RNA sequence: UAUCGUAUGUAUAACGUUGUUUUUCGUUUCUUCUUUUACUUUAGCACCUGAAUCUCGGGGGCUCUUGUGCGUAAGAAAAGAAACGAAAAGUUACGCUAAAGCCUCCAUCUGGAGGCUUUUUUGUU
Dot-bracket structure: ...............((.(.((((((((((((.(.((((.....(...........)..(.......)..)))).).)))))))))))).).))...(((((((((....)))))))))......
RNA: Phenylalanine leader peptide